[Rfam]
RNA sequence: CAAGUCAGCUGGAUAAUCGCUGCUCGUUUUAUACGAGGGGAGGAAAGUCCGGGCUCCAUAGGGCAGGGUGCCAGGUAACGCCUGGGCGGUGCAAACCGACGGCCAGUGCAGCAGAGAGUAUACCGCCUAAGUUCUUAUUGAGUUCGCUCGUAAGAACCGGUAAGGGUGAAAGGGUGCGGUAAGAGCGCACCGCGUAGCUGGUAACAGUCUACGGCAUGGUAAACCCCACUCGGAGCAAGACCAAAUAGGAAUCCUUUAGCUGUGGCCCGCAGUGGAUUCGGGUAGGUUGCUUGAGCUUUUUGGCGACGAAAAGCCUAGACGAAUGAUUAUCCUCGACAGAACCCGGCUUACAGGCUGGCUUGGCCU
Dot-bracket structure: ((((((((((((((((((.((.(((((.....))))).))....[[[.[[[[[((((...[[[[.((((((((((.....)))))(((((....)))).)((...((((.............(((((...((((((((...........)))))))).)))..)).......((((((.......))))))(((((((((....))).))))).)...))..)))))))))))))...((((......((((((....(((((.]]]]))))))))))).....))))......((((((((....))))))))..........)))))))..........]]]]]]]].).))))))))))....
The family of this 366-nucleotide RNA from Litoribrevibacter albus is "Bacterial RNase P class A". NCBI's taxonomy places the organism under Bacteria, Pseudomonadati, Oceanospirillales, Oceanospirillaceae, Litoribrevibacter. Ribonuclease P (RNase P) is a ubiquitous endoribonuclease, found in archaea, bacteria and eukarya as well as chloroplasts and mitochondria.